RNA sequence: CCUCACAUAUUUCGGGUUUCGCGACAUCGUAACCGUUUUUCGACUGGUUCGUUGUCGACGAAACCUGCAUAGUGUGGGG
Numbered sequence: 001c002c003u004c005a006c007a008u009a010u011u012u013c014g015g016g017u018u019u020c021g022c023g024a025c026a027u028c029g030u031a032a033c034c035g036u037u038u039u040u041c042g043a044c045u046g047g048u049u050c051g052u053u054g055u056c057g058a059c060g061a062a063a064c065c066u067g068c069a070u071a072g073u074g075u076g077g078g079g
Stems, first nucleotide, its partner, number of pairs: 001079006013067009031049004